The family of this 184-nucleotide RNA sequence is "malK-I RNA". Rfam classes the family as a cis-regulatory element.

[Rfam]
RNA sequence: CCAGGUGGAUUCUGCCUACUCCACAUAAUAGACAGAAUACCGCUAAAAUAAAGGAGGAUAAACCCGUCUGACGCACGGUGCGGCAGUGUGGAGACCUGUCGUAAUGCUCACGGAAGAUUGCUUCACGGGCAGCGAGAACGCACGCGAAAAUGGUAGGUGCGUUCGGCGUCGAAACAGUAUGGCA
Numbered sequence: 001c002c003a004g005g006u007g008g009a010u011u012c013u014g015c016c017u018a019c020u021c022c023a024c025a026u027a028a029u030a031g032a033c034a035g036a037a038u039a040c041c042g043c044u045a046a047a048a049u050a051a052a053g054g055a056g057g058a059u060a061a062a063c064c065c066g067u068c069u070g071a072c073g074c075a076c077g078g079u080g081c082g083g084c085a086g087u088g089u090g091g092a093g094a095c096c097u098g099u100c101g102u103a104a105u106g107c108u109c110a111c112g113g114a115a116g117a118u119u120g121c122u123u124c125a126c127g128g129g130c131a132g133c134g135a136g137a138a139c140g141c142a143c144g145c146g147a148a149a150a151u152g153g154u155a156g157g158u159g160c161g162u163u164c165g166g167c168g169u170c171g172a173a174a175c176a177g178u179a180u181g182g183c184a
Base pairs, nucleotide, nucleotide: 007040009038010037011036012035013034014033016031017030018029064078065077066076067075069171070170071169072168073167074166079103080102081101082100083099084098085097086096088095089094106133107132108131109129111127112126136164137163138162139161140160141159142158143157